[Rfam]
The family of this 113-nucleotide sequence from Cerasibacillus terrae is "SAM riboswitch aptamer (S box leader)". About the family: The SAM riboswitch is found upstream of a number of genes which code for proteins involved in methionine or cysteine biosynthesis in Gram-positive bacteria. NCBI's taxonomy places the organism under Bacteria, Bacillati, Bacillota, Bacillaceae, Cerasibacillus.
RNA sequence: UCCUUAUCAAGAGUUGGGGGAGGAAUCUGGUCCGUCGAUCCCACGGCAACCGUCAUGAAUGAUGUUCGUGAAAAGGUGCUAAAUCCAGCAGAUAUUUGUCUGACAGAUGAGGA
Numbered sequence: 001u002c003c004u005u006a007u008c009a010a011g012a013g014u015u016g017g018g019g020g021a022g023g024a025a026u027c028u029g030g031u032c033c034g035u036c037g038a039u040c041c042c043a044c045g046g047c048a049a050c051c052g053u054c055a056u057g058a059a060u061g062a063u064g065u066u067c068g069u070g071a072a073a074a075g076g077u078g079c080u081a082a083a084u085c086c087a088g089c090a091g092a093u094a095u096u097u098g099u100c101u102g103a104c105a106g107a108u109g110a111g112g113a
Base pairs, nucleotide, nucleotide: 001113002112003111004110005109006108007107008106013044015043016042017041018040022033023032024031027088028087029086030085045080046079047078048077050076051075053071054070055069056068057067058066084105089102090101091100092099093098